[Rfam]
Nucleotides: 137
Base pairs, nucleotide, nucleotide: 028055029054030053031052032051034043035042036041086122087121088120089119091118092117093116094115095114096113097112098111
Number, partner (000 for none) and nucleotide at each position: 001000u002000u003000g004000a005000g006000a007000u008000u009000g010000c011000g012000c013000u014000c015000a016000a017000u018000g019000c020000c021000g022000g023000a024000g025000a026000c027000a028055g029054c030053a031052g032051g033000u034043g035042c036041u037000u038000a039000a040000u041036a042035g043034c044000u045000u046000a047000a048000u049000u050000u051032c052031c053030u054029g055028c056000c057000g058000a059000g060000g061000u062000a063000a064000a065000a066000g067000c068000a069000a070000a071000a072000a073000u074000u075000a076000u077000a078000a079000u080000u081000a082000g083000a084000u085000u086122u087121u088120u089119g090000u091118u092117g093116u094115g095114g096113a097112a098111a099000u100000g101000u102000a103000u104000a105000a106000u107000u108000u109000u110000c111098u112097u113096u114095c115094c116093a117092c118091a119089c120088a121087a122086a123000u124000u125000u126000a127000g128000a129000u130000u131000u132000a133000a134000u135000c136000u137000a